The family of this 307-nucleotide RNA from Nelumbo nucifera is "Plant signal recognition particle RNA". On this family, see Rosenblad et al., RNA Biol 2009: "Kinship in the SRP RNA family".
RNA sequence: GCUGAGCUUGGUAGCGUGAGCUUGUAACCCAAGCGGGAGCAUCAAAAUGGUUGGACGUUGGCCCGGUUCUGACAGGUGGGAUCUGACAGAGUAAUUUGCCGGCACGCCCGUUCCAAGUAGGGAGUUGAGCAAUGGGGCUUGAGCGAAGGCUGAGGCUUCUUGGUUCUUAGAGCGGAGGGCACCGCGUCAGGCUGGCUUCACAGAGCAGCGACAAUCUCCCGCUCCCGUCGGUGGAAGGAUAACGAGUCGGUACUCCGCUGAUCCACUCAUCGCCCUAGGAAUUGAUCCCAAUCGGACGACCACUUUU
Numbered sequence: 001g002c003u004g005a006g007c008u009u010g011g012u013a014g015c016g017u018g019a020g021c022u023u024g025u026a027a028c029c030c031a032a033g034c035g036g037g038a039g040c041a042u043c044a045a046a047a048u049g050g051u052u053g054g055a056c057g058u059u060g061g062c063c064c065g066g067u068u069c070u071g072a073c074a075g076g077u078g079g080g081a082u083c084u085g086a087c088a089g090a091g092u093a094a095u096u097u098g099c100c101g102g103c104a105c106g107c108c109c110g111u112u113c114c115a116a117g118u119a120g121g122g123a124g125u126u127g128a129g130c131a132a133u134g135g136g137g138c139u140u141g142a143g144c145g146a147a148g149g150c151u152g153a154g155g156c157u158u159c160u161u162g163g164u165u166c167u168u169a170g171a172g173c174g175g176a177g178g179g180c181a182c183c184g185c186g187u188c189a190g191g192c193u194g195g196c197u198u199c200a201c202a203g204a205g206c207a208g209c210g211a212c213a214a215u216c217u218c219c220c221g222c223u224c225c226c227g228u229c230g231g232u233g234g235a236a237g238g239a240u241a242a243c244g245a246g247u248c249g250g251u252a253c254u255c256c257g258c259u260g261a262u263c264c265a266c267u268c269a270u271c272g273c274c275c276u277a278g279g280a281a282u283u284g285a286u287c288c289c290a291a292u293c294g295g296a297c298g299a300c301c302a303c304u305u306u307u
Base pairs, nucleotide, nucleotide: 001040002039003038004023005022006021007020008019009018010017028037029036030035044306045305046304048302049301050300051299052298053297056294057293058291059290060289061287064284065283066282068280069279070278072276075274076273077272078271079264080263081262082261083260085258089255090254091253094251099250100249101248102247103246105244106243108238109237111236112235113234114233115232117229120226121225122224123223124222125221127166128165129164130163132161134159135158136157137156138155139154140153142151143150144149167172174219175218176217177216178215185210186209187208192203193202194201
Lineage of the source: Eukaryota > Streptophyta > Mesangiospermae > Nelumbonaceae > Nelumbo. The match comes from Rfam's covariance-model search (227 bits). Gene Ontology terms of the family: signal recognition particle, endoplasmic reticulum targeting and SRP-dependent cotranslational protein targeting to membrane, signal sequence recognition.